[Rfam]
RNA sequence: GGAGACGUUUAGGUGUCUGGUGGCCCUCACGGUCUACAAAACCGAUGGGCGGCGUGAUGCGUCGCCGGCGGGUUCGAUUCCCGUCCGUCUCC
Numbered sequence: 001g002g003a004g005a006c007g008u009u010u011a012g013g014u015g016u017c018u019g020g021u022g023g024c025c026c027u028c029a030c031g032g033u034c035u036a037c038a039a040a041a042c043c044g045a046u047g048g049g050c051g052g053c054g055u056g057a058u059g060c061g062u063c064g065c066c067g068g069c070g071g072g073u074u075c076g077a078u079u080c081c082c083g084u085c086c087g088u089c090u091c092c
Stems, first nucleotide, its partner, number of pairs: 001092007012027002015024003030044004048066005069083004

A member of the RNA family "Selenocysteine transfer RNA" from Nonomuraea polychroma, 92 nucleotides long. Rfam 15.1 lists 4,211 matches to the family in 3,344 species. Lineage of the source: Bacteria > Actinomycetota > Actinomycetes > Streptosporangiaceae > Nonomuraea. Gene Ontology term of the family: triplet codon-amino acid adaptor activity.